This 95-nucleotide RNA sequence from Kingdonia uniflora belongs to the Rfam family "Small nucleolar RNA Z161/Z228".
Clan: SNORD35 clan.
Its family is annotated with RNA processing and nucleolus in the Gene Ontology.
It is annotated as a C/D-box small nucleolar RNA.
Taxonomically the source falls in Kingdonia (Eukaryota, Streptophytina, Mesangiospermae, Circaeasteraceae).

RNA sequence: GAGCCAUGUGAUGAAAAUGGAUUUAUAUCUCACGACGGUCAUCUGAGACAUUUUGUUGUCGAAGUUGAUAGAAAAAUCCGUUCGUUCUGAUGGUU
Numbered sequence: 001g002a003g004c005c006a007u008g009u010g011a012u013g014a015a016a017a018u019g020g021a022u023u024u025a026u027a028u029c030u031c032a033c034g035a036c037g038g039u040c041a042u043c044u045g046a047g048a049c050a051u052u053u054u055g056u057u058g059u060c061g062a063a064g065u066u067g068a069u070a071g072a073a074a075a076a077u078c079c080g081u082u083c084g085u086u087c088u089g090a091u092g093g094u095u
Stems, first nucleotide, its partner, number of pairs: 001095002004092001049058002
Dot-bracket structure: ((.(............................................((......)).................................).))